[Rfam]
RNA: Acido-Lenti-1 RNA
RNA sequence: GCCAAGGCUGACGCCAUUGGGCUGAAAUAUGCCAUGCCUUCGGCAUU
Numbered sequence: 001g002c003c004a005a006g007g008c009u010g011a012c013g014c015c016a017u018u019g020g021g022c023u024g025a026a027a028u029a030u031g032c033c034a035u036g037c038c039u040u041c042g043g044c045a046u047u
Stems, first nucleotide, its partner, number of pairs: 002020004006015003034046005